[Rfam]
RNA: Small nucleolar RNA SNORA65
RNA sequence: CCCGCCAUUACGCCCGUCUGCGCCCGUGACGGGGCGUGCUCCAGUGGGGGCUGAGAGAGACCCAGCUCUAGGAAGCAGGACCGCGCCUGGUCUGUGGGCGGCUCUGUGCCGAAAGGCCUGGGACAAAA
Numbered sequence: 001c002c003c004g005c006c007a008u009u010a011c012g013c014c015c016g017u018c019u020g021c022g023c024c025c026g027u028g029a030c031g032g033g034g035c036g037u038g039c040u041c042c043a044g045u046g047g048g049g050g051c052u053g054a055g056a057g058a059g060a061c062c063c064a065g066c067u068c069u070a071g072g073a074a075g076c077a078g079g080a081c082c083g084c085g086c087c088u089g090g091u092c093u094g095u096g097g098g099c100g101g102c103u104c105u106g107u108g109c110c111g112a113a114a115g116g117c118c119u120g121g122g123a124c125a126a127a128a
Base pairs, nucleotide, nucleotide: 005047006046007045008044009043018034019033021031023028062121063120064119065118066116067115069113071110072109076106077105078104079103081101084098086096